The family of this 128-nucleotide RNA sequence from Nannospalax galili is "Small nucleolar RNA ACA64".
Pairs were carried over by alignment from the consensus structure, which was predicted with WAR.
A reference for the family is Schattner et al. (2006), "A computational screen for mammalian pseudouridylation guide H/ACA RNAs", RNA.
The match comes from Rfam's covariance-model search (99 bits).
[Rfam]
RNA sequence: CAUUGUUGAAAAUCACCACUGGCCUUGGUCAUGGCCUGGGUUGAGAUUUCGUGCCCAGAACCACCAGGGGCCUCGGCUCACCUCCCGCUGCCAAGGUGUGGGAUGGUGAAACCCAGGCCCAAAUAAUG
Numbered sequence: 001c002a003u004u005g006u007u008g009a010a011a012a013u014c015a016c017c018a019c020u021g022g023c024c025u026u027g028g029u030c031a032u033g034g035c036c037u038g039g040g041u042u043g044a045g046a047u048u049u050c051g052u053g054c055c056c057a058g059a060a061c062c063a064c065c066a067g068g069g070g071c072c073u074c075g076g077c078u079c080a081c082c083u084c085c086c087g088c089u090g091c092c093a094a095g096g097u098g099u100g101g102g103a104u105g106g107u108g109a110a111a112c113c114c115a116g117g118c119c120c121a122a123a124u125a126a127u128g
Stems, first nucleotide, its partner, number of pairs: 005052002008049003013044003021036004069119005078109005086100003
Dot-bracket structure: ....((.(((..(((.....((((........)))).....)))..))).))................(((((....(((((...(((.........)))....))))).....))))).........